[Rfam]
RNA sequence: CCCUAGCCCCGAUAGCAGCGGAAAUCCUUUUUACAAUGGAGCCUGCGGAAUGUAAAAAGAUUGCAGCGGAUAACGGGAAAAUGC
Numbered sequence: 001c002c003c004u005a006g007c008c009c010c011g012a013u014a015g016c017a018g019c020g021g022a023a024a025u026c027c028u029u030u031u032u033a034c035a036a037u038g039g040a041g042c043c044u045g046c047g048g049a050a051u052g053u054a055a056a057a058a059g060a061u062u063g064c065a066g067c068g069g070a071u072a073a074c075g076g077g078a079a080a081a082u083g084c
Base pairs, nucleotide, nucleotide: 009076010075011074013072014071018067019066023062024061025060026059029057030056031055032054033053034052035051
Rfam assigns this 84-nucleotide RNA sequence from Flavobacterium pallidum to the family "Flavo-1 RNA".
The family's consensus secondary structure is taken from published work.
It is annotated as a small RNA.